[Rfam]
Overview:
Rfam assigns this 197-nucleotide sequence from Streptomyces sp. ICC1 to the family "c-di-AMP riboswitch aptamer (ydaO/yuaA leader)". The base pairs follow the family's consensus structure. A search with the family's covariance model found it, with a score of 63 bits.
RNA sequence: AAACCGCAUCCGACUAUUCACGCGCGCGGCAGGAGCGGGGGAACCAGGUAAGCCGCUGUUCCGGAUCUCCGUCGAGAUCUUUACAACGGGACAGCUCGGGGUGAAGCCGUACAUGUGCUGUUCGCCGGCACGUGGGCGGCCGGACAUCUCCAGUCCGAACCCGACAGCUCACCUCGCAGGCGUCGGAGAGGAAAUUC
Numbered sequence: 001a002a003a004c005c006g007c008a009u010c011c012g013a014c015u016a017u018u019c020a021c022g023c024g025c026g027c028g029g030c031a032g033g034a035g036c037g038g039g040g041g042a043a044c045c046a047g048g049u050a051a052g053c054c055g056c057u058g059u060u061c062c063g064g065a066u067c068u069c070c071g072u073c074g075a076g077a078u079c080u081u082u083a084c085a086a087c088g089g090g091a092c093a094g095c096u097c098g099g100g101g102u103g104a105a106g107c108c109g110u111a112c113a114u115g116u117g118c119u120g121u122u123c124g125c126c127g128g129c130a131c132g133u134g135g136g137c138g139g140c141c142g143g144a145c146a147u148c149u150c151c152a153g154u155c156c157g158a159a160c161c162c163g164a165c166a167g168c169u170c171a172c173c174u175c176g177c178a179g180g181c182g183u184c185g186g187a188g189a190g191g192a193a194a195u196u197c
Stems, first nucleotide, its partner, number of pairs: 004180002009034003035177006045098001099162003107139004142156004
Dot-bracket structure: ...((...(((....................)))((((((....(....................................................)(((.....((((.........................))))..((((.......))))...))).........)))))).)).................